[Rfam]
RNA sequence: AGAAGACCUCCGGUAGAUCAGGGCUGGAGCAAAACGCAGGUUGUAAAAAAGCGGGAUGACGUGUGAAGGUCAUCCCGC
Numbered sequence: 001a002g003a004a005g006a007c008c009u010c011c012g013g014u015a016g017a018u019c020a021g022g023g024c025u026g027g028a029g030c031a032a033a034a035c036g037c038a039g040g041u042u043g044u045a046a047a048a049a050a051g052c053g054g055g056a057u058g059a060c061g062u063g064u065g066a067a068g069g070u071c072a073u074c075c076c077g078c
Base pairs, nucleotide, nucleotide: 005042007040008039009038023030024029051078052077053076054075057072058071059070060069
RNA: Pseudomonas sRNA P31
Organism: Pseudomonas kuykendallii